[Rfam]
Shown here is a 117-nucleotide RNA from Alloalcanivorax dieselolei, a member of the family "ALIL pseudoknot". Taxonomically the source falls in Alloalcanivorax dieselolei (Bacteria, Gammaproteobacteria, Oceanospirillales, Alcanivoracaceae). Rfam 15.1 lists 2,146 matches to the family in 1,098 species. The family's RNA type in Rfam is cis-regulatory element.
RNA sequence: CGCUUUUUUCGCCCAGGCGGAGCUCGACCGCAAACUGAAGUCCUGAACGCCUACAUCGAUCAGCACCGGGAUACCUACGGGGUCGAGCCGAUCUGCAGAGUGCUGCGGGUUGCCCCU
Numbered sequence: 001c002g003c004u005u006u007u008u009u010c011g012c013c014c015a016g017g018c019g020g021a022g023c024u025c026g027a028c029c030g031c032a033a034a035c036u037g038a039a040g041u042c043c044u045g046a047a048c049g050c051c052u053a054c055a056u057c058g059a060u061c062a063g064c065a066c067c068g069g070g071a072u073a074c075c076u077a078c079g080g081g082g083u084c085g086a087g088c089c090g091a092u093c094u095g096c097a098g099a100g101u102g103c104u105g106c107g108g109g110u111u112g113c114c115c116c117u
Base pairs, nucleotide, nucleotide: 017031018030019029020028079116080115081114082113089112090111092109093108094107095106096105097104098103